[Rfam]
Nucleotides: 354
Stems, first nucleotide, its partner, number of pairs: 001350007019323008029314001032311002036307004042298005047068005054081002057078002114132006133168006141159004148180007183213005191205001196228001199225001233271002237267002242262001245259003250290001252288005327343005
Number, partner (000 for none) and nucleotide at each position: 001350g002349g003348g004347g005346g006345c007344g008000a009000c010000u011000g012000g013000u014000u015000u016000c017000g018000a019323c020322g021321g022320g023319u024318a025317g026316g027000u028000u029314g030000a031000a032311g033310c034000u035000u036307c037306a038305g039304u040000g041000g042298c043297g044296u045295g046294u047068c048067g049066a050065g051064g052000u053000u054081g055080g056000a057078c058077u059000c060000c061000a062000g063000g064051c065050c066049u067048c068047g069000u070000a071000a072000a073000a074000a075000g076000g077058a078057g079000c080055c081054c082000a083000a084000a085000a086000a087000a088000c089000a090000u091000a092000a093000a094000u095000g096000c097000u098000g099000a100000c101000g102000a103000a104000a105000g106000u107000u108000a109000c110000g111000c112000a113000a114132u115131g116130g117129c118128g119127g120000c121000a122000u123000a124000g125000u126000u127119c128118c129117g130116c131115u132114a133168c134167g135166u136165c137164u138163c139000u140000a141159c142158c143157u144156u145000g146000a147000a148180g149179c150178u151177u152176g153175u154174u155000a156144g157143g158142g159141g160000a161000u162000a163138g164137a165136g166135g167134c168133g169000a170000c171000g172000a173000c174154a175153a176152c177151a178150a179149g180148c181000u182000a183213g184212u185211g186210c187209c188000a189000a190000c191205u192000c193000c194000g195000g196228g197000g198000a199225u200000c201000c202000g203000g204000g205191a206000c207000g208000c209187g210186g211185c212184g213183c214000g215000a216000a217000a218000c219000c220000c221000a222000a223000c224000a225199g226000g227000a228196u229000u230000c231000u232000a233271g234270c235000g236000a237267c238266c239000a240000a241000a242262g243000u244000g245259g246258c247257u248000c249000u250290g251000a252288c253287g254286g255285g256284u257247g258246g259245c260000a261000g262242c263000g264000g265000a266238g267237g268000c269000g270234g271233c272000g273000a274000a275000u276000c277000u278000u279000u280000u281000a282000a283000u284256g285255c286254c287253c288252g289000a290250c291000u292000a293000c294046a295045c296044a297043c298042g299000u300000a301000g302000a303000a304039g305038c306037u307036g308000c309000u310033g311032u312000g313000a314029c315000u316026c317025u318024u319023a320022u321021u322020c323019g324000g325000a326000c327343g328342g329341g330340g331339g332000u333000u334000c335000a336000a337000u338000u339331c340330c341329c342328c343327c344007c345006g346005c347004c348003u349002c350001c351000a352000c353000c354000a